A member of the RNA family "Small nucleolar RNA SNORA24" from Xenopus laevis, 123 nucleotides long. Rfam's curators write: ACA24 is a member of the H/ACA class of snoRNA that guide the sites of modification of uridines to pseudouridines. Its family is annotated with RNA processing and nucleolus in the Gene Ontology. The family has 5 seed sequences and 852 matches in Rfam 15.1. Rfam classes the family as an H/ACA-box small nucleolar RNA. The family's consensus secondary structure was predicted with RNAfold.

[Rfam]
RNA sequence: UUCCAUGAUUCCAUGGGAUGUGUCUUGUGGCAUCCUCCCUUCCUAGUCAUGGUAGAAUAGAUUUACUUAUUUUUAACAUGCUGUUUCUGCCAUGUUGGUCUCAGCUCUUUAAAAGUAAGGAAC
Numbered sequence: 001u002u003c004c005a006u007g008a009u010u011c012c013a014u015g016g017g018a019u020g021u022g023u024c025u026u027g028u029g030g031c032a033u034c035c036u037c038c039c040u041u042c043c044u045a046g047u048c049a050u051g052g053u054a055g056a057a058u059a060g061a062u063u064u065a066c067u068u069a070u071u072u073u074u075a076a077c078a079u080g081c082u083g084u085u086u087c088u089g090c091c092a093u094g095u096u097g098g099u100c101u102c103a104g105c106u107c108u109u110u111a112a113a114a115g116u117a118a119g120g121a122a123c
Stems, first nucleotide, its partner, number of pairs: 003052005015039004020033005066120003072114003075110002078108001081104003087098003